[Rfam]
Overview: The family of this 86-nucleotide RNA from Candidatus Fervidibacter japonicus is "tRNA". A search with the family's covariance model found it, with a score of 55 bits. NCBI's taxonomy places the organism under Bacteria, Bacteria candidate phyla, Candidatus Fervidibacterota, Fervidibacteraceae, Fervidibacter. Rfam describes the family as follows. Transfer RNA (tRNA) molecules are approximately 80 nucleotides in length. The base pairs follow the family's consensus structure, which is taken from published work.

RNA sequence: GCCGCGGUGGCGGAACUUGGCAGACGCGCUGGCCUCAGGAGCCAGUGGGCUGAACGCCCGUGCGGGUUCAAAUCCCGCCCGCGGCA
Number, nucleotide and partner (000 for none) at each position: 001g085002c084003c083004g082005c081006g080007g079008u000009g000010g027011c026012g025013g000014a000015a000016c000017u000018u000019g000020g000021c000022a000023g000024a000025c012026g011027c010028g000029c045030u044031g043032g042033c041034c000035u000036c000037a000038g000039g000040a000041g033042c032043c031044a030045g029046u000047g000048g000049g000050c000051u000052g000053a000054a000055c000056g000057c000058c000059c000060g000061u000062g078063c077064g076065g075066g074067u000068u000069c000070a000071a000072a000073u000074c066075c065076c064077g063078c062079c007080c006081g005082c004083g003084g002085c001086a000